The record is a 224-nucleotide RNA from Streptococcus pantholopis, which matches "PreQ1-II (pre queuosine) riboswitch aptamer" in Rfam.
Pairs were carried over by alignment from the consensus structure, which is taken from published work.
Rfam describes the family as follows. preQ1-II riboswitch was first reported for Weinberg et al. 2007 it was recognised in Streptococcaceae and Lactococcus families in 5' untranslated regions of genes of a membrane protein classified as COG4708 or DUF988.
Taxonomically the source falls in Streptococcus (Bacteria, Bacillati, Bacilli, Streptococcaceae).
RNA sequence: UAUGAUACAAUAAGCAAGUUGUUUAUGCAACCCUUGGUGCUUAGCUUCUUUCACCAAGCAUAUUAGAAGCGUGAAAUAAAGUGGUGGCAUUCUAUUUAGACAGUGCCGACUUCAUUGUUUUUGCUGGCUAGUCUUCUAUGACAGUCAAAACGGUGAUUUCUGAACAGGCUUGUCUGACAGAAUACCAAGGCUCUUUUAUUUUGACGCUAAAGGAGAAUUAAAUG
Number, nucleotide and partner (000 for none) at each position: 001u000002a000003u000004g000005a000006u000007a000008c000009a000010a000011u000012a000013a000014g000015c000016a000017a000018g031019u030020u029021g028022u027023u000024u000025a000026u000027g022028c021029a020030a019031c018032c000033c058034u057035u056036g055037g054038u053039g052040c000041u000042u000043a000044g000045c215046u214047u213048c212049u211050u210051u000052c039053a038054c037055c036056a035057a034058g033059c000060a000061u000062a000063u000064u000065a000066g000067a000068a208069g207070c206071g205072u204073g000074a000075a000076a000077u000078a000079a000080a000081g000082u000083g000084g000085u000086g000087g000088c000089a000090u000091u000092c000093u000094a000095u000096u000097u000098a000099g000100a000101c000102a000103g000104u000105g000106c000107c000108g000109a000110c000111u000112u000113c000114a000115u000116u000117g000118u000119u000120u000121u000122u000123g000124c000125u000126g000127g000128c000129u000130a000131g000132u000133c000134u000135u000136c000137u000138a000139u000140g000141a000142c000143a000144g000145u000146c000147a000148a000149a000150a000151c000152g000153g000154u000155g000156a000157u000158u000159u000160c000161u000162g000163a000164a000165c000166a000167g000168g000169c000170u000171u000172g000173u000174c000175u000176g000177a000178c000179a000180g000181a000182a000183u000184a000185c000186c000187a000188a000189g000190g000191c000192u000193c000194u000195u000196u000197u000198a000199u000200u000201u000202u000203g000204a072205c071206g070207c069208u068209a000210a050211a049212g048213g047214a046215g045216a000217a000218u000219u000220a000221a000222a000223u000224g000